[Rfam]
RNA sequence: GUUUGUCUUCAGGGCAGGGUGUAAUUCCCGACCGGCGGUGAUAGUCCGCGACACGUGAGUAAUCACGCUGAACUGGUGUAAUUCCAGUACCGACAGUAAAGUCUGGUAUGUAGAAGAUUAAA
Numbered sequence: 001g002u003u004u005g006u007c008u009u010c011a012g013g014g015c016a017g018g019g020u021g022u023a024a025u026u027c028c029c030g031a032c033c034g035g036c037g038g039u040g041a042u043a044g045u046c047c048g049c050g051a052c053a054c055g056u057g058a059g060u061a062a063u064c065a066c067g068c069u070g071a072a073c074u075g076g077u078g079u080a081a082u083u084c085c086a087g088u089a090c091c092g093a094c095a096g097u098a099a100a101g102u103c104u105g106g107u108a109u110g111u112a113g114a115a116g117a118u119u120a121a122a
Stems, first nucleotide, its partner, number of pairs: 003120001005118006017029003031102002033092002035049004044090002054067002072088005094105003
RNA: FMN riboswitch aptamer (RFN element)